[Rfam]
RNA sequence: GGUAGGAGUGCCCAAUGGUGGGCAGCCUGACUUGAAAUCAGGUACGUUGUGGGGACACGGCGGGGGUUCGAUUCCUCCUCCUACC
Number, nucleotide and partner (000 for none) at each position: 001g085002g084003u083004a082005g081006g080007a079008g078009u024010g023011c022012c021013c020014a019015a000016u000017g000018g000019u014020g013021g012022g011023c010024a009025g043026c042027c041028u040029g039030a038031c000032u000033u000034g000035a000036a000037a000038u030039c029040a028041g027042g026043u025044a000045c000046g061047u060048u059049g058050u000051g000052g000053g000054g000055a000056c000057a000058c049059g048060g047061c046062g000063g077064g076065g075066g074067u000068u000069c000070g000071a000072u000073u000074c066075c065076u064077c063078c008079u007080c006081c005082u004083a003084c002085c001
RNA: Selenocysteine transfer RNA